[Rfam]
RNA sequence: ACAUGUGAGGUGAUCGCGCUGCAACUACUUCAGUUGCGGUGAGGAAAGUCCACGCUCGCCCGGGCUGAGAUGCCCGGAGUUCGGAUGCCUGCCCAAUUCAUAAGGCAGGGCAGCCUGCACAAGGCUGACGGCGGAGGAAACGAGCUACGUUCGCUUUGCGGCGAAUAUGCAGAAGUACUCCUGAAAGUGCCACAGUGACGAAGCUUCUCGGAAACGGGAAGAGUGGAACGAGGUAAACCCCAUCUGCGAGAAACCCAAACUUUGGUCGGGGAACUGCUUGGAGGGAAUUUGAACCGAAGAGCGGAUUGGCUUAACAGCCGAUAGUCAAAUGGUUGCCACUCAUAGUGCGAGGCUUUCUCGAGCCGCUUGAAGCACGGAGGAACAGAACGUGGCUUACAACA
Numbered sequence: 001a002c003a004u005g006u007g008a009g010g011u012g013a014u015c016g017c018g019c020u021g022c023a024a025c026u027a028c029u030u031c032a033g034u035u036g037c038g039g040u041g042a043g044g045a046a047a048g049u050c051c052a053c054g055c056u057c058g059c060c061c062g063g064g065c066u067g068a069g070a071u072g073c074c075c076g077g078a079g080u081u082c083g084g085a086u087g088c089c090u091g092c093c094c095a096a097u098u099c100a101u102a103a104g105g106c107a108g109g110g111c112a113g114c115c116u117g118c119a120c121a122a123g124g125c126u127g128a129c130g131g132c133g134g135a136g137g138a139a140a141c142g143a144g145c146u147a148c149g150u151u152c153g154c155u156u157u158g159c160g161g162c163g164a165a166u167a168u169g170c171a172g173a174a175g176u177a178c179u180c181c182u183g184a185a186a187g188u189g190c191c192a193c194a195g196u197g198a199c200g201a202a203g204c205u206u207c208u209c210g211g212a213a214a215c216g217g218g219a220a221g222a223g224u225g226g227a228a229c230g231a232g233g234u235a236a237a238c239c240c241c242a243u244c245u246g247c248g249a250g251a252a253a254c255c256c257a258a259a260c261u262u263u264g265g266u267c268g269g270g271g272a273a274c275u276g277c278u279u280g281g282a283g284g285g286a287a288u289u290u291g292a293a294c295c296g297a298a299g300a301g302c303g304g305a306u307u308g309g310c311u312u313a314a315c316a317g318c319c320g321a322u323a324g325u326c327a328a329a330u331g332g333u334u335g336c337c338a339c340u341c342a343u344a345g346u347g348c349g350a351g352g353c354u355u356u357c358u359c360g361a362g363c364c365g366c367u368u369g370a371a372g373c374a375c376g377g378a379g380g381a382a383c384a385g386a387a388c389g390u391g392g393c394u395u396a397c398a399a400c401a
Stems, first nucleotide, its partner, number of pairs: 004401003007397001009337007017041008046395003050392005055250005060077006083245005088109006110129001111127006130240002133181004141172001144170002149166007187238002189234003204221007254270003274304006305322006340380002343377001345375004
About this RNA: A member of the RNA family "Bacterial RNase P class B" from Tumebacillus algifaecis, 401 nucleotides long. Ribonuclease P (RNase P) is a ubiquitous endoribonuclease, found in archaea, bacteria and eukarya as well as chloroplasts and mitochondria. Its best characterised activity is the generation of mature 5'-ends of tRNAs by cleaving the 5'-leader elements of precursor-tRNAs. Cellular RNase Ps are ribonucleoproteins. RNA from bacterial RNase Ps retains its catalytic activity in the absence of the protein subunit, i.e. it is a ribozyme. NCBI's taxonomy places the organism under Bacteria, Bacilli, Caryophanales, Alicyclobacillaceae, Tumebacillus. Rfam links the family to the GO terms tRNA processing, ribonuclease P activity and dimeric ribonuclease P complex.